Archaeal large subunit ribosomal RNA: a 360-nucleotide part of an RNA from Archaeoglobus sulfaticallidus. Clan: LSU clan. NCBI's taxonomy places the organism under Archaea, Methanobacteriati, Methanobacteriota, Archaeoglobaceae, Archaeoglobus sulfaticallidus.
RNA sequence: CGGAACACUCUGGCCGAGGGAAUUCGGCAAAUUGGCCCUGUAUCUUCGGUAGAAGGGGUGCCUGCGGUUGAGUAGACCGCAGGUCGCAGUGCCUAGGGGGGAGCGACUGUUUAAUAAAAACACAGGGGGUCGCUAACCGGUAACGGCUAGUACGACCCCUGAGUCCUGCCCAGUGCGGGUACCUGAAAGCCCAGUCCAAUGGGUCGAAGGGCCCGUAAACGGCGGGGGUAACUAUGACCCUCUUAAGGUAGCGUAAUACCUUGCCGCUUAAUUGGCGGCUUGCAUGAACGGAUUAACGACUCCCCCACUGUCCCCGGCCAGAAUCCGGCGAACCCGACUUCCCAGUGAAGAGUCUGGGGA
Numbered sequence: 001c002g003g004a005a006c007a008c009u010c011u012g013g014c015c016g017a018g019g020g021a022a023u024u025c026g027g028c029a030a031a032u033u034g035g036c037c038c039u040g041u042a043u044c045u046u047c048g049g050u051a052g053a054a055g056g057g058g059u060g061c062c063u064g065c066g067g068u069u070g071a072g073u074a075g076a077c078c079g080c081a082g083g084u085c086g087c088a089g090u091g092c093c094u095a096g097g098g099g100g101g102a103g104c105g106a107c108u109g110u111u112u113a114a115u116a117a118a119a120a121c122a123c124a125g126g127g128g129g130u131c132g133c134u135a136a137c138c139g140g141u142a143a144c145g146g147c148u149a150g151u152a153c154g155a156c157c158c159c160u161g162a163g164u165c166c167u168g169c170c171c172a173g174u175g176c177g178g179g180u181a182c183c184u185g186a187a188a189g190c191c192c193a194g195u196c197c198a199a200u201g202g203g204u205c206g207a208a209g210g211g212c213c214c215g216u217a218a219a220c221g222g223c224g225g226g227g228g229u230a231a232c233u234a235u236g237a238c239c240c241u242c243u244u245a246a247g248g249u250a251g252c253g254u255a256a257u258a259c260c261u262u263g264c265c266g267c268u269u270a271a272u273u274g275g276c277g278g279c280u281u282g283c284a285u286g287a288a289c290g291g292a293u294u295a296a297c298g299a300c301u302c303c304c305c306c307a308c309u310g311u312c313c314c315c316g317g318c319c320a321g322a323a324u325c326c327g328g329c330g331a332a333c334c335c336g337a338c339u340u341c342c343c344a345g346u347g348a349a350g351a352g353u354c355u356g357g358g359g360a
Stems, first nucleotide, its partner, number of pairs: 001327004009322008018313003035059005044049001060084009085089001097306007104298002108122003125160008133150001137146003163293004168223003173220002175216005182211003189204005224242006243247001263279006341358005